Small nucleolar RNA Z266: an 87-nucleotide RNA from Miscanthus lutarioriparius. Rfam 15.1 lists 719 matches to the family in 213 species. Lineage of the source: Eukaryota > Mesangiospermae > Liliopsida > Andropogoneae > Miscanthus. Pairs were carried over by alignment from the consensus structure, which was predicted with PFOLD. The family's RNA type in Rfam is C/D-box small nucleolar RNA.
RNA sequence: GGUUGGCAGAAGUGAUGAACCAAUUAGAUGUGCAAAGUUACCUUAUGAGCUUAACUUUUGAGGCAUACAUUCACUCGACCGCCGAUC
Numbered sequence: 001g002g003u004u005g006g007c008a009g010a011a012g013u014g015a016u017g018a019a020c021c022a023a024u025u026a027g028a029u030g031u032g033c034a035a036a037g038u039u040a041c042c043u044u045a046u047g048a049g050c051u052u053a054a055c056u057u058u059u060g061a062g063g064c065a066u067a068c069a070u071u072c073a074c075u076c077g078a079c080c081g082c083c084g085a086u087c
Base pairs, nucleotide, nucleotide: 001087002086003085004084005083006082007081009079